[Rfam]
RNA: Small nucleolar RNA Z155
RNA sequence: AGUUGAUGGGAUGAUAACCUUUCACAGAAACUGUAUGUGUUGACCCAAAAUUCAGACUACAAUUAUCUGAUCAACU
Numbered sequence: 001a002g003u004u005g006a007u008g009g010g011a012u013g014a015u016a017a018c019c020u021u022u023c024a025c026a027g028a029a030a031c032u033g034u035a036u037g038u039g040u041u042g043a044c045c046c047a048a049a050a051u052u053c054a055g056a057c058u059a060c061a062a063u064u065a066u067c068u069g070a071u072c073a074a075c076u
Stems, first nucleotide, its partner, number of pairs: 001076006